[Rfam]
RNA: U2 spliceosomal RNA
Organism: Trichinella patagoniensis
RNA sequence: CUAACUGUAUUGUAUUUUUCGAAGAUCAAAGUAAAGCAUCUGUUCUUAUCAGCUUAAUUUCUGGUAUGAAUCCCAAGUGGAUUCGUUAAGAAAUUUGCAUAAGUUUUUGAGAAAAUAGGCAUUUGGUCGAGUGCUCGCACCACCAUUUGUCGCGGGUCGUCCUGAUAUUGCACUACAUUCAGGAACGGCCUAUUCCCC
Numbered sequence: 001c002u003a004a005c006u007g008u009a010u011u012g013u014a015u016u017u018u019u020c021g022a023a024g025a026u027c028a029a030a031g032u033a034a035a036g037c038a039u040c041u042g043u044u045c046u047u048a049u050c051a052g053c054u055u056a057a058u059u060u061c062u063g064g065u066a067u068g069a070a071u072c073c074c075a076a077g078u079g080g081a082u083u084c085g086u087u088a089a090g091a092a093a094u095u096u097g098c099a100u101a102a103g104u105u106u107u108u109g110a111g112a113a114a115a116u117a118g119g120c121a122u123u124u125g126g127u128c129g130a131g132u133g134c135u136c137g138c139a140c141c142a143c144c145a146u147u148u149g150u151c152g153c154g155g156g157u158c159g160u161c162c163u164g165a166u167a168u169u170g171c172a173c174u175a176c177a178u179u180c181a182g183g184a185a186c187g188g189c190c191u192a193u194u195c196c197c198c
Base pairs, nucleotide, nucleotide: 001024002023047066048065049064050063051062052061068084069083070082071081072080073079118151119150120149121148124145125144131140132139133138154191155190156189157188158187159186161183162182163181164180165179